A member of the RNA family "Flavo-1 RNA" from Flavobacterium orientale, 144 nucleotides long. The family's RNA type in Rfam is small RNA. The organism belongs to Flavobacterium, within Bacteria.
[Rfam]
RNA sequence: CCCUAGCCCGGAUUGAAGUGGAAAGCCUUUUGCCGGAUUGUUGUAUUUUUUCUUGCUGAAAAAGAGCGACCGGAGGAAGCUCCUUUUUUAGCUUAGAAAAAAACAAUAAGACAAAAAAGCUUGUAACGGAAAGCCGGAUGAGCU
Numbered sequence: 001c002c003c004u005a006g007c008c009c010g011g012a013u014u015g016a017a018g019u020g021g022a023a024a025g026c027c028u029u030u031u032g033c034c035g036g037a038u039u040g041u042u043g044u045a046u047u048u049u050u051u052c053u054u055g056c057u058g059a060a061a062a063a064g065a066g067c068g069a070c071c072g073g074a075g076g077a078a079g080c081u082c083c084u085u086u087u088u089u090a091g092c093u094u095a096g097a098a099a100a101a102a103a104c105a106a107u108a109a110g111a112c113a114a115a116a117a118a119g120c121u122u123g124u125a126a127c128g129g130a131a132a133g134c135c136g137g138a139u140g141a142g143c144u
Base pairs, nucleotide, nucleotide: 009136010135011134013132014131018127019126023122024121025120026119029117030116031115